[Rfam]
RNA sequence: AUAUUGGAUAGAGGCGCGGUGUACAUGCGUACCGAUGGACAAGGCCAGGCAGCCGUCCGUCGGGAGAGGGUCUACCGCCGAAGGUUCCCCGGCCUGCCUGGGUCUGGGUUCCUGGGUCGUAGGAGAAUAUCCUGCGGACUGUCACAACUUUGUGGAGCGCUAUCCUGAAC
Numbered sequence: 001a002u003a004u005u006g007g008a009u010a011g012a013g014g015c016g017c018g019g020u021g022u023a024c025a026u027g028c029g030u031a032c033c034g035a036u037g038g039a040c041a042a043g044g045c046c047a048g049g050c051a052g053c054c055g056u057c058c059g060u061c062g063g064g065a066g067a068g069g070g071u072c073u074a075c076c077g078c079c080g081a082a083g084g085u086u087c088c089c090c091g092g093c094c095u096g097c098c099u100g101g102g103u104c105u106g107g108g109u110u111c112c113u114g115g116g117u118c119g120u121a122g123g124a125g126a127a128u129a130u131c132c133u134g135c136g137g138a139c140u141g142u143c144a145c146a147a148c149u150u151u152g153u154g155g156a157g158c159g160c161u162a163u164c165c166u167g168a169a170c
Base pairs, nucleotide, nucleotide: 006165007164008163009162010161011160016078017077018076019075020074021073023071024070032063033062034061035060036059037058038057039056082113083112084111087108088107089106091104092103093102114140115139117137118136119135120134121133122132123131124130142155143154144153145152146151